[Rfam]
Rfam assigns this 107-nucleotide RNA from Halopseudomonas phragmitis to the family "Guanidine-I riboswitch aptamer". The organism belongs to Halopseudomonas, within Bacteria. A search with the family's covariance model found it, with a score of 87 bits.
RNA sequence: AUCUAGGCGAACUAGGGUUCCGAUCCGCAUCAGCGGAUGACUGGUCCGAGAGUUUUCCGGCUUCCAUGGAUAAGGAGGCUACACGGCGGGACAAAAGCCCGGGAGAC
Numbered sequence: 001a002u003c004u005a006g007g008c009g010a011a012c013u014a015g016g017g018u019u020c021c022g023a024u025c026c027g028c029a030u031c032a033g034c035g036g037a038u039g040a041c042u043g044g045u046c047c048g049a050g051a052g053u054u055u056u057c058c059g060g061c062u063u064c065c066a067u068g069g070a071u072a073a074g075g076a077g078g079c080u081a082c083a084c085g086g087c088g089g090g091a092c093a094a095a096a097g098c099c100c101g102g103g104a105g106a107c
Stems, first nucleotide, its partner, number of pairs: 007057001009055004015047002020044002022041001023038006059080007082102001084105001088100003